This 65-nucleotide sequence from Medicago truncatula belongs to the Rfam family "MIR5291 microRNA precursor family".
NCBI's taxonomy places the organism under Eukaryota, Pentapetalae, Hologalegina, Trifolieae, Medicago.

RNA sequence: GAUGGAUUUCAAACCAAUCCAUUAACAAACGUUUUAUUUGAUGGAUGGAUUAGAUGGAUUUUAUA
Numbered sequence: 001g002a003u004g005g006a007u008u009u010c011a012a013a014c015c016a017a018u019c020c021a022u023u024a025a026c027a028a029a030c031g032u033u034u035u036a037u038u039u040g041a042u043g044g045a046u047g048g049a050u051u052a053g054a055u056g057g058a059u060u061u062u063a064u065a
Stems, first nucleotide, its partner, number of pairs: 004061005012055001014053001016051008026040004
The base pairs follow the family's consensus structure, which was predicted with RNAalifold.